[Rfam]
RNA sequence: AUUAGAGGAACGCAGGGCUAAAACCGCCACGUCCUGUGGCAACGCCUGCAUGAACCGCGUCCUGCGGG
Numbered sequence: 001a002u003u004a005g006a007g008g009a010a011c012g013c014a015g016g017g018c019u020a021a022a023a024c025c026g027c028c029a030c031g032u033c034c035u036g037u038g039g040c041a042a043c044g045c046c047u048g049c050a051u052g053a054a055c056c057g058c059g060u061c062c063u064g065c066g067g068g
Base pairs, nucleotide, nucleotide: 012049013048014047015046017045018044026040027039028038029037030036055067056066057065058064
RNA: Bacillaceae-1 RNA